[Rfam]
RNA sequence: GGCACGGGCCAUGCUUUAAAAGGACAUCGGUAACGCCAACGGCGGUGUUACCUCAGGACAAAGACGUCUG
Numbered sequence: 001g002g003c004a005c006g007g008g009c010c011a012u013g014c015u016u017u018a019a020a021a022g023g024a025c026a027u028c029g030g031u032a033a034c035g036c037c038a039a040c041g042g043c044g045g046u047g048u049u050a051c052c053u054c055a056g057g058a059c060a061a062a063g064a065c066g067u068c069u070g
Stems, first nucleotide, its partner, number of pairs: 031050007
Shown here is a 70-nucleotide sequence from Azospira inquinata, a member of the family "narK RNA". Pairs were carried over by alignment from the consensus structure, which is taken from published work.